A member of the RNA family "mir-190 microRNA precursor family" from Coturnix japonica, 75 nucleotides long. The match comes from Rfam's covariance-model search (80 bits). Its family is annotated with RISC complex and miRNA-mediated post-transcriptional gene silencing in the Gene Ontology.
[Rfam]
RNA sequence: GACUCUGUCUGAUAUGUUUGAUAUAUUAGGUUGUUAUUGAAACCAACUAAAUAUCAAACAUAUUCCUACAGUGUU
Numbered sequence: 001g002a003c004u005c006u007g008u009c010u011g012a013u014a015u016g017u018u019u020g021a022u023a024u025a026u027u028a029g030g031u032u033g034u035u036a037u038u039g040a041a042a043c044c045a046a047c048u049a050a051a052u053a054u055c056a057a058a059c060a061u062a063u064u065c066c067u068a069c070a071g072u073g074u075u
Base pairs, nucleotide, nucleotide: 005071006070007069008068011064012063013062014061015060016059017058018057019056020055021054022053023052024051029048030047031046032045033044